A member of the RNA family "IscS-1 ICR thermometer" from Serratia fonticola, 184 nucleotides long.
The source organism's lineage runs through Bacteria, Pseudomonadati, Pseudomonadota, Enterobacterales and Serratia.
The base pairs follow the family's consensus structure.
A reference for the family is Righetti et al. (2016), "Temperature-responsive in vitro RNA structurome of Yersinia pseudotuberculosis", Proc Natl Acad Sci U S A.
Rfam's curators write: Imprinting control region from upstream of iscS-1 (cysteine desulfurase).
By type it is an RNA thermoregulator.
It scores 116 bits against the family's covariance model.

RNA sequence: CCAGGAAGUGCUGGACGUGGCAGACCGUCAAAAUAGCGAUACGCGCCGCACGGCCAACGGUCGUCUGCAAGAAACGAUCAACGUUAAUCUGCGCGCAUAAGCAGCUGACGACUAAUUUAUUGGUUUUUGGAAGUGAUGUACGGAGUACAAGAGCAAUGAAAUUACCGAUUUAUCUGGACUACUC
Numbered sequence: 001c002c003a004g005g006a007a008g009u010g011c012u013g014g015a016c017g018u019g020g021c022a023g024a025c026c027g028u029c030a031a032a033a034u035a036g037c038g039a040u041a042c043g044c045g046c047c048g049c050a051c052g053g054c055c056a057a058c059g060g061u062c063g064u065c066u067g068c069a070a071g072a073a074a075c076g077a078u079c080a081a082c083g084u085u086a087a088u089c090u091g092c093g094c095g096c097a098u099a100a101g102c103a104g105c106u107g108a109c110g111a112c113u114a115a116u117u118u119a120u121u122g123g124u125u126u127u128u129g130g131a132a133g134u135g136a137u138g139u140a141c142g143g144a145g146u147a148c149a150a151g152a153g154c155a156a157u158g159a160a161a162u163u164a165c166c167g168a169u170u171u172a173u174c175u176g177g178a179c180u181a182c183u184c
Stems, first nucleotide, its partner, number of pairs: 001130007014049001017046002020044002026038003051063005066110002070106002078100001080098001082095003134164004146158002